[Rfam]
RNA sequence: CCGCCUCUUGAUGCGUUGGACUAAUCACCGAUGGCUCACAUCACCUGACGGACAAGUAAAUAUCAGCACAGCGAUCUGAUGAGCAAGAGAGCUGCAAUCGGAAUGGAGAUCACUCCAUUUGGACUGCGGUUAGGUUACUAUUGCCAUUUUUCGCUGUUCA
Number, nucleotide and partner (000 for none) at each position: 001c051002c050003g049004c000005c047006u000007c000008u000009u043010g042011a041012u040013g039014c033015g032016u031017u030018g029019g000020a000021c000022u000023a000024a000025u000026c000027a000028c000029c018030g017031a016032u015033g014034g084035c083036u082037c081038a080039c013040a012041u011042c010043a009044c000045c000046u000047g005048a000049c003050g002051g001052a000053c000054a000055a000056g000057u000058a000059a000060a000061u000062a000063u000064c000065a000066g000067c000068a000069c156070a155071g154072c153073g152074a151075u000076c000077u000078g000079a000080u038081g037082a036083g035084c034085a000086a000087g000088a000089g000090a000091g130092c129093u128094g127095c126096a000097a000098u000099c000100g000101g000102a000103a118104u117105g116106g115107a114108g000109a000110u000111c000112a000113c000114u107115c106116c105117a104118u103119u000120u000121g000122g000123a000124c000125u000126g095127c094128g093129g092130u091131u000132a000133g000134g000135u000136u000137a000138c000139u000140a000141u000142u000143g000144c000145c000146a000147u000148u000149u000150u000151u074152c073153g072154c071155u070156g069157u000158u000159c000160a000

The record is a 160-nucleotide RNA, which matches "DUF2800 RNA" in Rfam. The sequence is in the family's curated seed alignment. By type it is a cis-regulatory element. Pairs were carried over by alignment from the consensus structure, which is taken from published work.